[Rfam]
RNA sequence: UCCUUAUAAAGAGUCGGGGAAGGAACUGGUCCUAUGAUCCCGCGGCAACCCUUGCUUCCAAGCAAAAAGGUGCCAAUUCCAGCAAACUGAUACAGUUUGAAAGAUAAGGG
Numbered sequence: 001u002c003c004u005u006a007u008a009a010a011g012a013g014u015c016g017g018g019g020a021a022g023g024a025a026c027u028g029g030u031c032c033u034a035u036g037a038u039c040c041c042g043c044g045g046c047a048a049c050c051c052u053u054g055c056u057u058c059c060a061a062g063c064a065a066a067a068a069g070g071u072g073c074c075a076a077u078u079c080c081a082g083c084a085a086a087c088u089g090a091u092a093c094a095g096u097u098u099g100a101a102a103g104a105u106a107a108g109g110g
Stems, first nucleotide, its partner, number of pairs: 001110007013043001015042004022032003026082004044074004049070002052065003078102001083099006
RNA: SAM riboswitch aptamer (S box leader)